[Rfam]
Nucleotides: 223
Base pairs, nucleotide, nucleotide: 001024002023003022004021005020025218026217027216028215029214032070033069042064043063044062045061046060075147077145078144079143080142082094083093084092087136088135089134090133096124097122098121099120100119127141128140129139153189154188155187156186157185158184170203171202172201192213193212194211195210196209
Number, partner (000 for none) and nucleotide at each position: 001024u002023g003022u004021c005020g006000g007000g008000a009000g010000g011000g012000a013000c014000g015000c016000c017000a018000a019000a020005c021004g022003a023002c024001a025218g026217g027216a028215g029214a030000u031000g032070a033069c034000u035000g036000a037000a038000c039000a040000a041000c042064c043063c044062u045061u046060a047000u048000g049000u050000g051000g052000u053000c054000c055000a056000c057000c058000g059000c060046u061045g062044g063043g064042g065000u066000a067000u068000a069033g070032u071000u072000g073000a074000g075147u076000a077145g078144g079143a080142c081000a082094g083093g084092c085000u086000g087136u088135g089134g090133u091000g092084g093083c094082c095000g096124c097122c098121c099120u100119g101000a102000u103000u104000a105000a106000c107000c108000a109000g110000a111000g112000a113000u114000g115000g116000g117000a118000g119100c120099a121098g122097g123000u124096g125000a126000a127141u128140c129139c130000g131000a132000a133090a134089c135088c136087a137000a138000a139129g140128g141127a142080g143079u144078c145077c146000g147075a148000a149000a150000g151000a152000u153189c154188a155187c156186g157185g158184g159000u160000a161000u162000a163000a164000c165000u166000u167000a168000g169000c170203a171202g172201u173000a174000a175000g176000u177000g178000u179000a180000g181000a182000c183000c184158c185157c186156c187155g188154u189153g190000u191000u192213g193212u194211g195210g196209g197000u198000a199000u200000a201172a202171c203170u204000g205000a206000a207000g208000u209196c210195c211194c212193a213192c214029u215028c216027u217026c218025c219000a220000c221000c222000c223000a

About this RNA
The record is a 223-nucleotide RNA sequence, which matches "manA RNA" in Rfam. Rfam's curators put it in the seed alignment. The family's RNA type in Rfam is cis-regulatory element. About the family: manA RNA has been located in 5'UTR regions of genes of mannose or fructose metabolism. Has been proposed as a cis-regulatory element and as a riboswitch candidate for his complex secondary structure.